Glycine riboswitch aptamer: a 93-nucleotide RNA from Paenibacillus sp. J2TS4. For this family Rfam cites "In Vivo Behavior of the Tandem Glycine Riboswitch in Bacillus subtilis" (Babina et al., MBio, 2017). The source organism's lineage runs through Bacteria, Bacillota, Bacilli, Caryophanales and Paenibacillus. The match comes from Rfam's covariance-model search (44 bits). This family represents the bacterial glycine riboswitch.
[Rfam]
RNA sequence: CUCUGGAGAGAUCCCGCAUUUUGCGAGGACACCCAAGGGGAAACUUUAGCGGCAGCAGGAGGCUAGAGGCAACUCUCAGGUAAAAGGACAGAG
Dot-bracket structure: (((((......(((............))).(((.(..(((...(((((((...........)))))))....))))..))).......)))))
Numbered sequence: 001c002u003c004u005g006g007a008g009a010g011a012u013c014c015c016g017c018a019u020u021u022u023g024c025g026a027g028g029a030c031a032c033c034c035a036a037g038g039g040g041a042a043a044c045u046u047u048a049g050c051g052g053c054a055g056c057a058g059g060a061g062g063c064u065a066g067a068g069g070c071a072a073c074u075c076u077c078a079g080g081u082a083a084a085a086g087g088a089c090a091g092a093g
Stems, first nucleotide, its partner, number of pairs: 001093005012029003031081003035076001038075003044068007